[Rfam]
RNA sequence: UUUGGAAAAAGCCAAAUCUACCGUGAGGUAGAGACGGAAAGCCACGGAACUUAAAAACGGUAGAUGGUGGCUGUGAUUAGUAAAAUAGCUAAUUACUAAUUACUAAUUACUAUUUACUGUUUUAAAGUUAGCCGGGUUGCCGAA
Numbered sequence: 001u002u003u004g005g006a007a008a009a010a011g012c013c014a015a016a017u018c019u020a021c022c023g024u025g026a027g028g029u030a031g032a033g034a035c036g037g038a039a040a041g042c043c044a045c046g047g048a049a050c051u052u053a054a055a056a057a058c059g060g061u062a063g064a065u066g067g068u069g070g071c072u073g074u075g076a077u078u079a080g081u082a083a084a085a086u087a088g089c090u091a092a093u094u095a096c097u098a099a100u101u102a103c104u105a106a107u108u109a110c111u112a113u114u115u116a117c118u119g120u121u122u123u124a125a126a127g128u129u130a131g132c133c134g135g136g137u138u139g140c141c142g143a144a
Stems, first nucleotide, its partner, number of pairs: 012037002017032006040138004045134003048129003055123003
The record is a 144-nucleotide sequence from Candidatus Desulfofervidus auxilii, which matches "c-di-GMP-I riboswitch aptamer" in Rfam. NCBI's taxonomy places the organism under Bacteria, Pseudomonadati, Candidatus Desulfofervidia, Candidatus Desulfofervidales, Candidatus Desulfofervidus. Rfam links the family to the GO term cyclic-di-GMP binding. For this family Rfam cites "Identification of 22 candidate structured RNAs in bacteria using the CMfinder comparative genomics pipeline" (Weinberg et al., Nucleic Acids Res, 2007).